[Rfam]
RNA sequence: AAACUAAAUAGGUAAAAUCAUCGAAAGAUGAUGACACAAAACUAUAGGGUCUUUAAAAUGACAGCCAGUUGCACAU
Number, nucleotide and partner (000 for none) at each position: 001a000002a000003a000004c000005u000006a000007a000008a000009u000010a000011g000012g037013u036014a000015a000016a000017a032018u031019c030020a029021u028022c027023g000024a000025a000026a000027g022028a021029u020030g019031a018032u017033g000034a000035c000036a013037c012038a000039a000040a070041a069042c068043u067044a000045u000046a000047g066048g065049g062050u061051c060052u000053u000054u000055a000056a000057a000058a000059u000060g051061a050062c049063a000064g000065c048066c047067a043068g042069u041070u040071g000072c000073a000074c000075a000076u000